[Rfam]
RNA sequence: CUGAGCUGGUGAUGAUUAAAGAGUUAUCCCUGUCUGAAGCGGAUCUUUUCCCUGUGGAAGCUUAACUCUGAGGCUCAG
Numbered sequence: 001c002u003g004a005g006c007u008g009g010u011g012a013u014g015a016u017u018a019a020a021g022a023g024u025u026a027u028c029c030c031u032g033u034c035u036g037a038a039g040c041g042g043a044u045c046u047u048u049u050c051c052c053u054g055u056g057g058a059a060g061c062u063u064a065a066c067u068c069u070g071a072g073g074c075u076c077a078g
Stems, first nucleotide, its partner, number of pairs: 001078007
A member of the RNA family "Small nucleolar RNA R38" from Psilopogon haemacephalus, 78 nucleotides long. snoR38 is a C/D box small nucleolar RNA conserved across yeast, human, Arabidopsis and rice. It is encoded in the intron of elongation factor-1 gamma in both pombe and cerevisiae. snoR38 guides the methylation of 2'-O-ribose sites in 28S rRNA. The literature on the family includes a 1995 paper in Trends Biochem Sci by Bachellerie et al., "Antisense snoRNAs: a family of nucleolar RNAs with long complementarities to rRNA". Taxonomically the source falls in Psilopogon (Eukaryota, Teleostomi, Sarcopterygii, Archosauria). The family's RNA type in Rfam is C/D-box small nucleolar RNA.